[Rfam]
RNA sequence: GGUCUGCAGGCAGUGCAGUUAGCUGAUUGUCUGCCCCACGCCGCAAUCACUAACCUCCCUGCCACCAGAAC
Numbered sequence: 001g002g003u004c005u006g007c008a009g010g011c012a013g014u015g016c017a018g019u020u021a022g023c024u025g026a027u028u029g030u031c032u033g034c035c036c037c038a039c040g041c042c043g044c045a046a047u048c049a050c051u052a053a054c055c056u057c058c059c060u061g062c063c064a065c066c067a068g069a070a071c
Base pairs, nucleotide, nucleotide: 003069004068005067006066009063010062012060013059015057018054019053020052021051022050024049025048026047027046028045029044030043
Shown here is a 71-nucleotide RNA sequence from Motacilla alba, a member of the family "mir-34 microRNA precursor family". Gene Ontology terms of the family: RISC complex and miRNA-mediated post-transcriptional gene silencing. The literature on the family includes a 2003 paper in RNA by Dostie et al., "Numerous microRNPs in neuronal cells containing novel microRNAs". NCBI's taxonomy places the organism under Eukaryota, Opisthokonta, Neoaves, Motacillidae, Motacilla. Clan: mir-34 clan. The family's consensus secondary structure was predicted with RNAalifold. Rfam 15.1 lists 2,256 matches to the family in 820 species. From the family's description: Human mir-34a was discovered computationally and later experimentally verified. The mature sequence is excised from the 5' arm of the hairpin.